[Rfam]
RNA sequence: CCGGGCCGUGAUUGUCCAAACGCAAUUCUUGUCUCUCCGCCUGAGAGUUGAGUCUGGACAUCGCGAGCCGG
Numbered sequence: 001c002c003g004g005g006c007c008g009u010g011a012u013u014g015u016c017c018a019a020a021c022g023c024a025a026u027u028c029u030u031g032u033c034u035c036u037c038c039g040c041c042u043g044a045g046a047g048u049u050g051a052g053u054c055u056g057g058a059c060a061u062c063g064c065g066a067g068c069c070g071g
Stems, first nucleotide, its partner, number of pairs: 002070003007065001009063004014059005021052001023050009
RNA: mir-219 microRNA precursor family